[Rfam]
RNA sequence: ACCACGGCCAGGGUGGUUUCCGAAAGGAAUAGGCCUGGAUGCUCCAGCCGGAGGUGAGCAUAAUAAAAAACAACCGGCAGCC
Number, nucleotide and partner (000 for none) at each position: 001a000002c016003c015004a014005c013006g000007g000008c038009c037010a036011g035012g034013g005014u004015g003016g002017u000018u000019u028020c027021c026022g000023a000024a000025a000026g021027g020028a019029a000030u000031a000032g000033g000034c012035c011036u010037g009038g008039a000040u060041g059042c058043u057044c000045c000046a000047g078048c077049c076050g075051g074052a000053g000054g000055u000056g000057a043058g042059c041060a040061u000062a000063a000064u000065a000066a000067a000068a000069a000070a000071c000072a000073a000074c051075c050076g049077g048078c047079a000080g000081c000082c000

The family of this 82-nucleotide RNA sequence is "Proteo-phage-1 RNA". Pairs were carried over by alignment from the consensus structure, which is taken from published work. The sequence is in the family's curated seed alignment. By type it is a small RNA.